[Rfam]
Background:
Rfam assigns this 156-nucleotide RNA from Atopobium minutum to the family "DUF2800 RNA". Rfam classes the family as a cis-regulatory element. Lineage of the source: Bacteria > Bacillati > Actinomycetota > Coriobacteriia > Atopobium minutum.
RNA sequence: CAAUGGCAAGAUGCACCGUCUGAUCAGCAGUGGCUCACAUCUUCCAUUGAACAAGUAAAUAACUCUGACCAAACGAUGAGCAGUGCGGUCACACGUCCGUUCGGAGAAAUCCGAAGACCUGUGAUUGCUUUCUUGCGCUCAUUUUUAGGUCGCUUU
Numbered sequence: 001c002a003a004u005g006g007c008a009a010g011a012u013g014c015a016c017c018g019u020c021u022g023a024u025c026a027g028c029a030g031u032g033g034c035u036c037a038c039a040u041c042u043u044c045c046a047u048u049g050a051a052c053a054a055g056u057a058a059a060u061a062a063c064u065c066u067g068a069c070c071a072a073a074c075g076a077u078g079a080g081c082a083g084u085g086c087g088g089u090c091a092c093a094c095g096u097c098c099g100u101u102c103g104g105a106g107a108a109a110u111c112c113g114a115a116g117a118c119c120u121g122u123g124a125u126u127g128c129u130u131u132c133u134u135g136c137g138c139u140c141a142u143u144u145u146u147a148g149g150u151c152g153c154u155u156u
Stems, first nucleotide, its partner, number of pairs: 001049005008043006014032003018028001033081005066152005072146001088125005102113004